Annotation:
The family of this 110-nucleotide sequence from Streptomyces radiopugnans is "Glycine riboswitch aptamer".
RNA sequence: CGAGUCCGCACGGGAGAGUUCCCGGAAAACGCUGGUCACGACGGUUUCCGGGGCGCCGAAGGAGCAAGUCCUCCCUUGAAUCUCUCAGGCCCCGAUACCGUGUGGACGAG
Numbered sequence: 001c002g003a004g005u006c007c008g009c010a011c012g013g014g015a016g017a018g019u020u021c022c023c024g025g026a027a028a029a030c031g032c033u034g035g036u037c038a039c040g041a042c043g044g045u046u047u048c049c050g051g052g053g054c055g056c057c058g059a060a061g062g063a064g065c066a067a068g069u070c071c072u073c074c075c076u077u078g079a080a081u082c083u084c085u086c087a088g089g090c091c092c093c094g095a096u097a098c099c100g101u102g103u104g105g106a107c108g109a110g
Stems, first nucleotide, its partner, number of pairs: 006105008020053009055090003058086002062084003068077001
Dot-bracket structure: .....((((((((......(((((((((................))))))))).(((((..(((...(........)....))))).))).......)))))))).....